[Rfam]
RNA sequence: CUUUGGUGUUCAGGGCUUCCCCCAUGUCCCACCUGCCAGGGAGGCUGAGCCCGAUGGAUCGCUUGAGCCCAGGAGUUCUGGGCUGCCAUGCACUGUGCCGAGCAGGCGUCUAAGCUAAGGCCGCCAUCAAUAUGGUGACCUGCAGGGAGCUGUGGGACACCAGGCUGACUAAGGAGAGGUGAACCGGCUCAGGUCGGAGACAGAGCAGGUCAAAGCUCCUGUGGCGGUCAGUAGCAGGAUCGCGCCUGUGAAUAGCCACUGCAGCGUAGCCUAGGCAACACAGAGACACGCAGGCUCCU
Numbered sequence: 001c002u003u004u005g006g007u008g009u010u011c012a013g014g015g016c017u018u019c020c021c022c023c024a025u026g027u028c029c030c031a032c033c034u035g036c037c038a039g040g041g042a043g044g045c046u047g048a049g050c051c052c053g054a055u056g057g058a059u060c061g062c063u064u065g066a067g068c069c070c071a072g073g074a075g076u077u078c079u080g081g082g083c084u085g086c087c088a089u090g091c092a093c094u095g096u097g098c099c100g101a102g103c104a105g106g107c108g109u110c111u112a113a114g115c116u117a118a119g120g121c122c123g124c125c126a127u128c129a130a131u132a133u134g135g136u137g138a139c140c141u142g143c144a145g146g147g148a149g150c151u152g153u154g155g156g157a158c159a160c161c162a163g164g165c166u167g168a169c170u171a172a173g174g175a176g177a178g179g180u181g182a183a184c185c186g187g188c189u190c191a192g193g194u195c196g197g198a199g200a201c202a203g204a205g206c207a208g209g210u211c212a213a214a215g216c217u218c219c220u221g222u223g224g225c226g227g228u229c230a231g232u233a234g235c236a237g238g239a240u241c242g243c244g245c246c247u248g249u250g251a252a253u254a255g256c257c258a259c260u261g262c263a264g265c266g267u268a269g270c271c272u273a274g275g276c277a278a279c280a281c282a283g284a285g286a287c288a289c290g291c292a293g294g295c296u297c298c299u
Stems, first nucleotide, its partner, number of pairs: 001044003005022002008019001028041003047297005053291001059286002062283002067276003071272003078269003082265005089258002093255004098250001102249008110238002114235004119229009128167002131164001133162005139156007169173001175220002178217003186211004194203001196201001
The family of this 299-nucleotide RNA sequence from Erpornis zantholeuca is "Metazoan signal recognition particle RNA". The base pairs follow the family's consensus structure, which is taken from published work. Its family is annotated with SRP-dependent cotranslational protein targeting to membrane, signal sequence recognition and signal recognition particle, endoplasmic reticulum targeting in the Gene Ontology. It scores 181 bits against the family's covariance model. The organism belongs to Erpornis, within Eukaryota. The literature on the family includes a 2002 paper in Nucleic Acids Res by Regalia et al., "Prediction of signal recognition particle RNA genes".